[Rfam]
RNA sequence: AGAGUAAGUCAGCCUAAUUCUAUUAAUAGAUAGAAGCGGAGGAACCACAUCAGGGGCGUAUUUCUAUAUUGAUUUAAGACAAUCAUUAUAGAGAAGGAUAUCUCCUAAUCCUAGCCCGUCAGCUAACUUCGUCGGCAUCAGGGGAAGACUGA
Numbered sequence: 001a002g003a004g005u006a007a008g009u010c011a012g013c014c015u016a017a018u019u020c021u022a023u024u025a026a027u028a029g030a031u032a033g034a035a036g037c038g039g040a041g042g043a044a045c046c047a048c049a050u051c052a053g054g055g056g057c058g059u060a061u062u063u064c065u066a067u068a069u070u071g072a073u074u075u076a077a078g079a080c081a082a083u084c085a086u087u088a089u090a091g092a093g094a095a096g097g098a099u100a101u102c103u104c105c106u107a108a109u110c111c112u113a114g115c116c117c118g119u120c121a122g123c124u125a126a127c128u129u130c131g132u133c134g135g136c137a138u139c140a141g142g143g144g145a146a147g148a149c150u151g152a
Stems, first nucleotide, its partner, number of pairs: 012136003018035006036132006046053001054117003062093007096111004
c-di-AMP riboswitch aptamer (ydaO/yuaA leader): a 152-nucleotide RNA sequence from Aphanothece hegewaldii. Lineage of the source: Bacteria > Bacillati > Oscillatoriophycideae > Aphanothece > Aphanothece hegewaldii. This family represents a conserved RNA structure found upstream of the ydaO and yuaA genes in Bacillus subtilis and related genes in other bacteria.